A member of the RNA family "c-di-GMP-I riboswitch aptamer" from Actinoplanes awajinensis, 75 nucleotides long. A search with the family's covariance model found it, with a score of 58 bits. The family's consensus secondary structure is taken from published work.
RNA sequence: CGGCGAGAAGGGCAAACCCGGUGCGAACCGGGGACGCAAAGCCACGGGACCCACGAGGUCGGCCGGGCUACCACC
Numbered sequence: 001c002g003g004c005g006a007g008a009a010g011g012g013c014a015a016a017c018c019c020g021g022u023g024c025g026a027a028c029c030g031g032g033g034a035c036g037c038a039a040a041g042c043c044a045c046g047g048g049a050c051c052c053a054c055g056a057g058g059u060c061g062g063c064c065g066g067g068c069u070a071c072c073a074c075c
Stems, first nucleotide, its partner, number of pairs: 012037002017032006040069004045065003048060003